Shown here is a 60-nucleotide RNA sequence from Sphingomonas cremea, a member of the family "terC RNA". Rfam 15.1 lists 1,112 matches to the family in 772 species. It is annotated as a cis-regulatory element. A search with the family's covariance model found it, with a score of 63 bits. The base pairs follow the family's consensus structure, which is taken from published work.
RNA sequence: GCUGCGGACCGGGCCCCUCUGGCGGGUGCCACCAGGCACUCGUGAUGUCGGACCGCAUCG
Numbered sequence: 001g002c003u004g005c006g007g008a009c010c011g012g013g014c015c016c017c018u019c020u021g022g023c024g025g026g027u028g029c030c031a032c033c034a035g036g037c038a039c040u041c042g043u044g045a046u047g048u049c050g051g052a053c054c055g056c057a058u059c060g
Base pairs, nucleotide, nucleotide: 006054007053009051010050011049012048022043023042024041025040026039027038028037029036